[Rfam]
RNA sequence: GAGAAAUGAGGAUACAUCCUUUGUCUUACUCUGUAGUGAAGACUUCAGAUCCAACUCUGAUCUCACACCUGAU
Numbered sequence: 001g002a003g004a005a006a007u008g009a010g011g012a013u014a015c016a017u018c019c020u021u022u023g024u025c026u027u028a029c030u031c032u033g034u035a036g037u038g039a040a041g042a043c044u045u046c047a048g049a050u051c052c053a054a055c056u057c058u059g060a061u062c063u064c065a066c067a068c069c070u071g072a073u
Base pairs, nucleotide, nucleotide: 001064002063003062004061

Small nucleolar RNA SNORD19: a 73-nucleotide RNA from Ptilonorhynchus violaceus. The pairing is the family consensus, mapped onto this sequence. The family has 22 seed sequences and 1,431 matches in Rfam 15.1. It is annotated as a C/D-box small nucleolar RNA.